[Rfam]
RNA: FMN riboswitch aptamer (RFN element)
RNA sequence: GAAGUUCUUCGGGGUCAGGUGAAGCGUUUAAACGCCAUUCCUAACCGACGGUAUAGUCCGUGACCUGCCAUUGGCAGUUGAACCGGUGAGAUUCCGGUACCGACAGUGAUUGUAUUUAUACAUAAGUCUGGAUGGGAGAAGUUAACUAA
Numbered sequence: 001g002a003a004g005u006u007c008u009u010c011g012g013g014g015u016c017a018g019g020u021g022a023a024g025c026g027u028u029u030a031a032a033c034g035c036c037a038u039u040c041c042u043a044a045c046c047g048a049c050g051g052u053a054u055a056g057u058c059c060g061u062g063a064c065c066u067g068c069c070a071u072u073g074g075c076a077g078u079u080g081a082a083c084c085g086g087u088g089a090g091a092u093u094c095c096g097g098u099a100c101c102g103a104c105a106g107u108g109a110u111u112g113u114a115u116u117u118a119u120a121c122a123u124a125a126g127u128c129u130g131g132a133u134g135g136g137a138g139a140a141g142u143u144a145a146c147u148a149a
Stems, first nucleotide, its partner, number of pairs: 003147004007141004017042003046102002048061004056100002065077002082098005104130003